A member of the RNA family "Mammalian CPEB3 ribozyme" from Alligator mississippiensis, 79 nucleotides long. Rfam 15.1 lists 5,706 matches to the family in 197 species. The source organism's lineage runs through Eukaryota, Opisthokonta, Chordata, Archosauria and Alligator. The base pairs follow the family's consensus structure, which is taken from published work.

RNA sequence: AGAGGUUCCAAGUUUGAGGCCAUAGCACAAGUGUUCAUGGCCUAGCCUGUCAGAUUUCAACAAAUCUGUGAAUUGUGUU
Numbered sequence: 001a002g003a004g005g006u007u008c009c010a011a012g013u014u015u016g017a018g019g020c021c022a023u024a025g026c027a028c029a030a031g032u033g034u035u036c037a038u039g040g041c042c043u044a045g046c047c048u049g050u051c052a053g054a055u056u057u058c059a060a061c062a063a064a065u066c067u068g069u070g071a072a073u074u075g076u077g078u079u
Stems, first nucleotide, its partner, number of pairs: 018047003024079007031043001033041001051068007